[Rfam]
RNA: msiK RNA
Organism: Antrihabitans stalactiti
RNA sequence: CCGCAGCGCCUUUAUUUCGGAUCGUCCGGCACGUUCCUGCCGGUGAAGGGACCGGUU
Numbered sequence: 001c002c003g004c005a006g007c008g009c010c011u012u013u014a015u016u017u018c019g020g021a022u023c024g025u026c027c028g029g030c031a032c033g034u035u036c037c038u039g040c041c042g043g044u045g046a047a048g049g050g051a052c053c054g055g056u057u
Stems, first nucleotide, its partner, number of pairs: 009049006026043006